[Rfam]
RNA sequence: CCAGACGGCCGGGCGAUCGCGGUCCUCUCACGAGGGUCGAGGAAAGUCCGGGCUCCACUUCGACAUGGCGGUGGGUAACGCCCACCGGGGGUGACCCCAGGGAUAGCGCCACAGAGAGCAGACCGCCUGAACUCCGGUUCAGGUAAGGGUGAAAGGGUGCGGUAAGAGCGCACCGCGGACCCGGCGACGGGGACGGCAUGGCAAGCCCCGCCAGGAGCAAGACCGAAUAGGGAUGUCGCGCCCUCGCAAGAGGGUAGGACCGUCGAAGGUCCGAGAUGUCCGGGUAGGUCGCGAGAACCGUCCAGCAAUGGCCGGUCCAGAGGAAUGAUCGUCGCGUCGACUUCGGUUGGCGGCACAGAACCCGGCUUACAGGCCGUCUGGUUUC
Numbered sequence: 001c002c003a004g005a006c007g008g009c010c011g012g013g014c015g016a017u018c019g020c021g022g023u024c025c026u027c028u029c030a031c032g033a034g035g036g037u038c039g040a041g042g043a044a045a046g047u048c049c050g051g052g053c054u055c056c057a058c059u060u061c062g063a064c065a066u067g068g069c070g071g072u073g074g075g076u077a078a079c080g081c082c083c084a085c086c087g088g089g090g091g092u093g094a095c096c097c098c099a100g101g102g103a104u105a106g107c108g109c110c111a112c113a114g115a116g117a118g119c120a121g122a123c124c125g126c127c128u129g130a131a132c133u134c135c136g137g138u139u140c141a142g143g144u145a146a147g148g149g150u151g152a153a154a155g156g157g158u159g160c161g162g163u164a165a166g167a168g169c170g171c172a173c174c175g176c177g178g179a180c181c182c183g184g185c186g187a188c189g190g191g192g193a194c195g196g197c198a199u200g201g202c203a204a205g206c207c208c209c210g211c212c213a214g215g216a217g218c219a220a221g222a223c224c225g226a227a228u229a230g231g232g233a234u235g236u237c238g239c240g241c242c243c244u245c246g247c248a249a250g251a252g253g254g255u256a257g258g259a260c261c262g263u264c265g266a267a268g269g270u271c272c273g274a275g276a277u278g279u280c281c282g283g284g285u286a287g288g289u290c291g292c293g294a295g296a297a298c299c300g301u302c303c304a305g306c307a308a309u310g311g312c313c314g315g316u317c318c319a320g321a322g323g324a325a326u327g328a329u330c331g332u333c334g335c336g337u338c339g340a341c342u343u344c345g346g347u348u349g350g351c352g353g354c355a356c357a358g359a360a361c362c363c364g365g366c367u368u369a370c371a372g373g374c375c376g377u378c379u380g381g382u383u384u385c
Base pairs, nucleotide, nucleotide: 001381002380003379004378005377006376007375008374009373010372011370012333013332014331015330016329017328018327020039021038022037023036024035025034026033027032044368045367046366048365049364050363051362052361053217054216055215056214066213067212068211069210070209071085072084073083074082075081086100087098088097089096090095101208102207106206107205108202109201110200123148124147125144126143127142128141129140130139131138132137156174157173158172159171160170161169175197176195177194180191181190182189183188221290222289223288224287231281232280233279234278235277236276257272258271259270260269261268297316298315299314300313302311303310304309
Shown here is a 385-nucleotide RNA sequence from Alphaproteobacteria bacterium PA2, a member of the family "Bacterial RNase P class A". By type it is a ribozyme. Pairs were carried over by alignment from the consensus structure, which is taken from published work. Rfam links the family to the GO terms tRNA processing, ribonuclease P activity and dimeric ribonuclease P complex. Taxonomically the source falls in Alphaproteobacteria (Bacteria, Pseudomonadati, Pseudomonadota). Clan: RNaseP clan. Rfam describes the family as follows. Ribonuclease P (RNase P) is a ubiquitous endoribonuclease, found in archaea, bacteria and eukarya as well as chloroplasts and mitochondria.